Shown here is a 499-nucleotide part of an RNA from Ectocarpus siliculosus, a member of the family "Eukaryotic large subunit ribosomal RNA".
The family has 88 seed sequences and 107,465 matches in Rfam 15.1.
The base pairs follow the family's consensus structure, which is taken from published work.
RNA sequence: UAGAGCAAUGUAGAUAAGGGAAGUCGGCAAAGCAGAUCCGUAACCUCGGGAAAAGGAUUGGCUCUGAGGGUUGGGUACGGGGGUCCUUGGCUUGACUUGCGGCGGCUGCCUUGGGACUGCGACCCCUCGGGGAUGCGGACCCUCGGCGGCUGCCUCAGCGACGGCCUUGGAACGGCCUUUCUUCGAUCGGCCUUUCCCCGUGCGUUGAACAACCGGCUCAGAACUGGAGCGGACAAGGGGAAUCCGACUGUUUAAUUAAAACAAAGCAUUGCGACGGCCGGAGACGGUGUUGACGCAAUGUGAUUUCUGCCCAGUGCUCUGAAUGUCAAAGUGAAGGAAUUCAACCAAGCGCGGGUAAACGGCGGGAGUAACUAUGACUCUCUUAAGGUAGCCAAAUGCCUCGUCAUCUAACUAGUGACGCGCAUGAAUGGAUUAAUGAGAUUCCCACUGUCCCUAUCUACUGUCUAGCGAACCCACAGCCAAGGGAACGGGCUUGGAA
Numbered sequence: 001u002a003g004a005g006c007a008a009u010g011u012a013g014a015u016a017a018g019g020g021a022a023g024u025c026g027g028c029a030a031a032g033c034a035g036a037u038c039c040g041u042a043a044c045c046u047c048g049g050g051a052a053a054a055g056g057a058u059u060g061g062c063u064c065u066g067a068g069g070g071u072u073g074g075g076u077a078c079g080g081g082g083g084u085c086c087u088u089g090g091c092u093u094g095a096c097u098u099g100c101g102g103c104g105g106c107u108g109c110c111u112u113g114g115g116a117c118u119g120c121g122a123c124c125c126c127u128c129g130g131g132g133a134u135g136c137g138g139a140c141c142c143u144c145g146g147c148g149g150c151u152g153c154c155u156c157a158g159c160g161a162c163g164g165c166c167u168u169g170g171a172a173c174g175g176c177c178u179u180u181c182u183u184c185g186a187u188c189g190g191c192c193u194u195u196c197c198c199c200g201u202g203c204g205u206u207g208a209a210c211a212a213c214c215g216g217c218u219c220a221g222a223a224c225u226g227g228a229g230c231g232g233a234c235a236a237g238g239g240g241a242a243u244c245c246g247a248c249u250g251u252u253u254a255a256u257u258a259a260a261a262c263a264a265a266g267c268a269u270u271g272c273g274a275c276g277g278c279c280g281g282a283g284a285c286g287g288u289g290u291u292g293a294c295g296c297a298a299u300g301u302g303a304u305u306u307c308u309g310c311c312c313a314g315u316g317c318u319c320u321g322a323a324u325g326u327c328a329a330a331g332u333g334a335a336g337g338a339a340u341u342c343a344a345c346c347a348a349g350c351g352c353g354g355g356u357a358a359a360c361g362g363c364g365g366g367a368g369u370a371a372c373u374a375u376g377a378c379u380c381u382c383u384u385a386a387g388g389u390a391g392c393c394a395a396a397u398g399c400c401u402c403g404u405c406a407u408c409u410a411a412c413u414a415g416u417g418a419c420g421c422g423c424a425u426g427a428a429u430g431g432a433u434u435a436a437u438g439a440g441a442u443u444c445c446c447a448c449u450g451u452c453c454c455u456a457u458c459u460a461c462u463g464u465c466u467a468g469c470g471a472a473c474c475c476a477c478a479g480c481c482a483a484g485g486g487a488a489c490g491g492g493c494u495u496g497g498a499a
Stems, first nucleotide, its partner, number of pairs: 001467004010461007018453003035059005044049001060225002063222006069214005075203009084171003089166003097158003101154010113142003117138005123132003226230001238446007245438002249263003266301008277288004305432003309363003314360002316356004321352001324351003332343004364382006383387001403419005480497005
About this RNA: Rfam's curators put it in the seed alignment.